[Rfam]
RNA sequence: AAGUGAGGUAGAGGCGCGAUAUUUAACAGUCCUUAGAGGAGCUUGAGAAGCUUAGAUACUAAGGAGAAGGAAAUGUCGCCGAAGCUUGUAAUAAACUCAUUAUUACAUGCUGGGUCUGCAGUGAAGAAUUGCAGGACUGUCCAUUAUAAACGUCCCGGUUUAUAAUGGUGUGCUAUCUCAUUG
Numbered sequence: 001a002a003g004u005g006a007g008g009u010a011g012a013g014g015c016g017c018g019a020u021a022u023u024u025a026a027c028a029g030u031c032c033u034u035a036g037a038g039g040a041g042c043u044u045g046a047g048a049a050g051c052u053u054a055g056a057u058a059c060u061a062a063g064g065a066g067a068a069g070g071a072a073a074u075g076u077c078g079c080c081g082a083a084g085c086u087u088g089u090a091a092u093a094a095a096c097u098c099a100u101u102a103u104u105a106c107a108u109g110c111u112g113g114g115u116c117u118g119c120a121g122u123g124a125a126g127a128a129u130u131g132c133a134g135g136a137c138u139g140u141c142c143a144u145u146a147u148a149a150a151c152g153u154c155c156c157g158g159u160u161u162a163u164a165a166u167g168g169u170g171u172g173c174u175a176u177c178u179c180a181u182u183g
Stems, first nucleotide, its partner, number of pairs: 006178006016079009031064006038057001083111003087107008112138002115135008141168010

Rfam assigns this 183-nucleotide RNA from Psychrobacillus sp. BL-248-WT-3 to the family "Lysine riboswitch aptamer". NCBI's taxonomy places the organism under Bacteria, Bacillati, Bacilli, Caryophanales, Psychrobacillus.